[Rfam]
RNA sequence: CUAAUGGGGAUACUCCCUGGGAAGUCACUUUCUUUGGGCUCUGUCCAAGUGGCCUAAGGGAGCAUAGUCUCUGCCUUGUGAUGUACAGUCCCUUAGCACAAUGCUGGAGAAGAAUCUGGGCCUUGAGUCAGGACCUGCAUAUCUCUACAACUUGUUGGAGUCUUGUGAACAAUGCCUAAGAAGACCAGGAAAAGAAAAAUA
Numbered sequence: 001c002u003a004a005u006g007g008g009g010a011u012a013c014u015c016c017c018u019g020g021g022a023a024g025u026c027a028c029u030u031u032c033u034u035u036g037g038g039c040u041c042u043g044u045c046c047a048a049g050u051g052g053c054c055u056a057a058g059g060g061a062g063c064a065u066a067g068u069c070u071c072u073g074c075c076u077u078g079u080g081a082u083g084u085a086c087a088g089u090c091c092c093u094u095a096g097c098a099c100a101a102u103g104c105u106g107g108a109g110a111a112g113a114a115u116c117u118g119g120g121c122c123u124u125g126a127g128u129c130a131g132g133a134c135c136u137g138c139a140u141a142u143c144u145c146u147a148c149a150a151c152u153u154g155u156u157g158g159a160g161u162c163u164u165g166u167g168a169a170c171a172a173u174g175c176c177u178a179a180g181a182a183g184a185c186c187a188g189g190a191a192a193a194g195a196a197a198a199a200u201a
Base pairs, nucleotide, nucleotide: 001107002106003105005103006102008046009045010044011043012042015038016037017036020031021030022029049099050098051097058092059091060090061089062086064084065083066082067079068078136191138189140187151183152182153181155179156178160170161169163167
Rfam assigns this 201-nucleotide RNA sequence from Spermophilus dauricus to the family "Small nucleolar RNA SNORA73 family". The source organism's lineage runs through Eukaryota, Bilateria, Chordata, Craniata and Spermophilus. Its Rfam clan is "snR30-U17 clan". Pairs were carried over by alignment from the consensus structure, which is taken from published work. It is annotated as an H/ACA-box small nucleolar RNA. Rfam describes the family as follows. U17 (SNORA73A and SNORA73B) also known as E1 belongs to the H/ACA class of small nucleolar RNAs (snoRNAs).